[Rfam]
RNA: Bacterial large subunit ribosomal RNA, nucleotides 9 to 568
Organism: Trichococcus palustris
RNA sequence: GAAUAAGGGCGCACGGUGGAUGCCUUGGCACUAGGAGCCGAUGAAGGACGGGACUAACACCGAUAUGCUCUGGGGAGCUGUAAGUAAGCUUUGAUCCAGAGAUUUCCGAAUGGGGCAACCCAAUAUCUUUGAUAGGAUAUUACGUUACACUGAAUACAUAGGUGUAUCGAGGAACACGCAGGGAACUGAAACAUCUCAUUACCUGCAGGAAGAGAAAGAAAAUUCGAUUCCCUUAGUAGCGGCGAGCGAAACGGGAAAAGCCCAAACCAAAGAGCUUGCUCUUUGGGGUUGUAGGACUGGGACGUGAGACUGUAAUGGAUAGCAGAAGCCAACUGGAAAGUUGCGCGAUAAAGGGUAAUAGCCCCGUAUGCGAAAUCUAAAGCAGCUCUACCAGUAUCCUGAGUACGGCGGAACACGAGAAAUUCCGUCGGAAUCCGGGAGGACCAUCUCCCAAGGCUAAAUACUCCCUAGUGACCGAUAGUGAACAAGUACCGUGAGGGAAAGGUGAAAAGCACCCCGGAAGGGGAGUGAAAUAGUACCUGAAACCGUGUGCUUACAAG
Numbered sequence: 001g002a003a004u005a006a007g008g009g010c011g012c013a014c015g016g017u018g019g020a021u022g023c024c025u026u027g028g029c030a031c032u033a034g035g036a037g038c039c040g041a042u043g044a045a046g047g048a049c050g051g052g053a054c055u056a057a058c059a060c061c062g063a064u065a066u067g068c069u070c071u072g073g074g075g076a077g078c079u080g081u082a083a084g085u086a087a088g089c090u091u092u093g094a095u096c097c098a099g100a101g102a103u104u105u106c107c108g109a110a111u112g113g114g115g116c117a118a119c120c121c122a123a124u125a126u127c128u129u130u131g132a133u134a135g136g137a138u139a140u141u142a143c144g145u146u147a148c149a150c151u152g153a154a155u156a157c158a159u160a161g162g163u164g165u166a167u168c169g170a171g172g173a174a175c176a177c178g179c180a181g182g183g184a185a186c187u188g189a190a191a192c193a194u195c196u197c198a199u200u201a202c203c204u205g206c207a208g209g210a211a212g213a214g215a216a217a218g219a220a221a222a223u224u225c226g227a228u229u230c231c232c233u234u235a236g237u238a239g240c241g242g243c244g245a246g247c248g249a250a251a252c253g254g255g256a257a258a259a260g261c262c263c264a265a266a267c268c269a270a271a272g273a274g275c276u277u278g279c280u281c282u283u284u285g286g287g288g289u290u291g292u293a294g295g296a297c298u299g300g301g302a303c304g305u306g307a308g309a310c311u312g313u314a315a316u317g318g319a320u321a322g323c324a325g326a327a328g329c330c331a332a333c334u335g336g337a338a339a340g341u342u343g344c345g346c347g348a349u350a351a352a353g354g355g356u357a358a359u360a361g362c363c364c365c366g367u368a369u370g371c372g373a374a375a376u377c378u379a380a381a382g383c384a385g386c387u388c389u390a391c392c393a394g395u396a397u398c399c400u401g402a403g404u405a406c407g408g409c410g411g412a413a414c415a416c417g418a419g420a421a422a423u424u425c426c427g428u429c430g431g432a433a434u435c436c437g438g439g440a441g442g443a444c445c446a447u448c449u450c451c452c453a454a455g456g457c458u459a460a461a462u463a464c465u466c467c468c469u470a471g472u473g474a475c476c477g478a479u480a481g482u483g484a485a486c487a488a489g490u491a492c493c494g495u496g497a498g499g500g501a502a503a504g505g506u507g508a509a510a511a512g513c514a515c516c517c518c519g520g521a522a523g524g525g526g527a528g529u530g531a532a533a534u535a536g537u538a539c540c541u542g543a544a545a546c547c548g549u550g551u552g553c554u555u556a557c558a559a560g
Base pairs, nucleotide, nucleotide: 007555008554009553010552011551012550013549014548015547016546022540023505024504027476028475029473030472031471032470033469034468035467036465037464038172039171046107047106048105049062050061051060068101069100070099071098072097073096074095077089078088079087112121113120114119122141123140124139125138126137127136128135143169144168146166147165148164149163150162151161177208178206179205180204181203182202188195189194218225219224228461229256230255231254232253239247240246259458260457261456262455267286268285269284270283271282272281273280293400294399295398297394298393299392300391308387310385311384312383313382316379317378318377319376320375322371323370324369328344330343331342332341333340353365354364355363406430407429408428409427410426411425412424413423437452438451439450440449441448492499493498515526516525517524518523